[Rfam]
A member of the RNA family "U7 small nuclear RNA" from Piliocolobus tephrosceles, 62 nucleotides long. Rfam's curators write: Animal histone pre-mRNAs are spliced by a different mechanism than nuclear pre-mRNAs and self-splicing introns. This processing involves the U7 snRNP, which contains only one RNA species: U7. The 5' end of U7 RNA is thought to base-pair to a conserved spacer element downstream of the cleavage site in histone pre-mRNA. This family contains a number of annotated U7 pseudogenes. The match comes from Rfam's covariance-model search (37 bits).
RNA sequence: CAGCAUUACAGCUCUUGUGGAAUUAGUCCAGCAGAUUUCUUAGUUUUCACUGGAAAACCUUA
Numbered sequence: 001c002a003g004c005a006u007u008a009c010a011g012c013u014c015u016u017g018u019g020g021a022a023u024u025a026g027u028c029c030a031g032c033a034g035a036u037u038u039c040u041u042a043g044u045u046u047u048c049a050c051u052g053g054a055a056a057a058c059c060u061u062a
Base pairs, nucleotide, nucleotide: 034059036057037056038055040053041052042051043050044049